RNA sequence: CCCUUCUUUUAAAGCACCCUGCUAAAAUUGGGAGGGCGAAGCCUCACGGCUUUGCUCUUGCAAGCAUGUAAGCACGGGUACACCAAGGAAGGAGAGAAAAGGCACAGUGUCGCAAAUGAGGCUAGGGCGGACCUCUUUCUUAAUGUCCGAUGUCCUUUGUCUCAAGGCUACGUGCUACACUG
Numbered sequence: 001c002c003c004u005u006c007u008u009u010u011a012a013a014g015c016a017c018c019c020u021g022c023u024a025a026a027a028u029u030g031g032g033a034g035g036g037c038g039a040a041g042c043c044u045c046a047c048g049g050c051u052u053u054g055c056u057c058u059u060g061c062a063a064g065c066a067u068g069u070a071a072g073c074a075c076g077g078g079u080a081c082a083c084c085a086a087g088g089a090a091g092g093a094g095a096g097a098a099a100a101g102g103c104a105c106a107g108u109g110u111c112g113c114a115a116a117u118g119a120g121g122c123u124a125g126g127g128c129g130g131a132c133c134u135c136u137u138u139c140u141u142a143a144u145g146u147c148c149g150a151u152g153u154c155c156u157u158u159g160u161c162u163c164a165a166g167g168c169u170a171c172g173u174g175c176u177a178c179a180c181u182g
Stems, first nucleotide, its partner, number of pairs: 017078002020074004027067002033058002036055008101176005109168001124153001126151001128149004
Dot-bracket structure: ................((.((((...((....((.((((((((....)))))))).)).......))...))))..))......................(((((...(..............(.(.((((..............)))).).)..............)...)))))......
RNA: Small nucleolar RNA SNORA81